[Rfam]
RNA: Mammalian CPEB3 ribozyme
Organism: Alligator sinensis
RNA sequence: AUGCCAUAACAGCCACAGCAGAAGCACUCACGUCGCGGCCCUGUCGGAUUCUAGCAAAUCUGCAAAUUUGGCU
Numbered sequence: 001a002u003g004c005c006a007u008a009a010c011a012g013c014c015a016c017a018g019c020a021g022a023a024g025c026a027c028u029c030a031c032g033u034c035g036c037g038g039c040c041c042u043g044u045c046g047g048a049u050u051c052u053a054g055c056a057a058a059u060c061u062g063c064a065a066a067u068u069u070g071g072c073u
Base pairs, nucleotide, nucleotide: 012039013038014037017073018072019071021069022068023067024036025035045062046061047060048059049058050057